[Rfam]
RNA sequence: CGGCUAAUGAUGAUUGAUCUCAAAGAUCUUAGCGGAUUUCAGUGAGUCCAUGCGUCGAUGAUGUGAUUUCAUGUUGUUACACACACUGAAGCCC
Dot-bracket structure: .((((....................................................................................)))).